[Rfam]
RNA sequence: GGGCGCCAGUGCUCGCACUUUGCCCUAAUAAUAUAUAUACUAUUAGGACGAAGUGCGAACGCUUCGCGUUC
Numbered sequence: 001g002g003g004c005g006c007c008a009g010u011g012c013u014c015g016c017a018c019u020u021u022g023c024c025c026u027a028a029u030a031a032u033a034u035a036u037a038u039a040c041u042a043u044u045a046g047g048a049c050g051a052a053g054u055g056c057g058a059a060c061g062c063u064u065c066g067c068g069u070u071c
Stems, first nucleotide, its partner, number of pairs: 001071006008064001009062003013058010024047007
A member of the RNA family "mir-H11 microRNA precursor family" from Simplexvirus humanalpha2, 71 nucleotides long. The base pairs follow the family's consensus structure, which was predicted with RNAalifold.